About this RNA
Small nucleolar RNA SNORD70: an 87-nucleotide sequence from Cricetulus griseus. Pairs were carried over by alignment from the consensus structure. The match comes from Rfam's covariance-model search (102 bits).

RNA sequence: UUCAUUGCUGUCAAUGAUGUAUUCCUUUUGGAACUGAGUCUAAGUGAUUUAACAAAAUUUCGUCACUACCACUGAGACAGCAAUGAA
Numbered sequence: 001u002u003c004a005u006u007g008c009u010g011u012c013a014a015u016g017a018u019g020u021a022u023u024c025c026u027u028u029u030g031g032a033a034c035u036g037a038g039u040c041u042a043a044g045u046g047a048u049u050u051a052a053c054a055a056a057a058u059u060u061c062g063u064c065a066c067u068a069c070c071a072c073u074g075a076g077a078c079a080g081c082a083a084u085g086a087a
Stems, first nucleotide, its partner, number of pairs: 001087012
Rfam classes the family as a C/D-box small nucleolar RNA.
From the family's description: snoRNA HBII-234 belongs to the C/D family of snoRNAs. It is the human orthologue of the mouse MBII-234 and is predicted to guide 2'O-ribose methylation of the small 18S rRNA on position A512. It is hosted, together with HBII-95, by the core C/D box snoRNA protein encoding gene NOP5/NOP58.